[Rfam]
RNA sequence: AAAAUAAACGGUGAUGGUGUUCGCCAUUAAAUGCAAGUAUUGCUGAUGACACCUGUUGAAGC
Numbered sequence: 001a002a003a004a005u006a007a008a009c010g011g012u013g014a015u016g017g018u019g020u021u022c023g024c025c026a027u028u029a030a031a032u033g034c035a036a037g038u039a040u041u042g043c044u045g046a047u048g049a050c051a052c053c054u055g056u057u058g059a060a061g062c
Stems, first nucleotide, its partner, number of pairs: 010025004016053006033043003
RNA: Fluoride riboswitch aptamer (crcB RNA motif)
Organism: Holzapfeliella floricola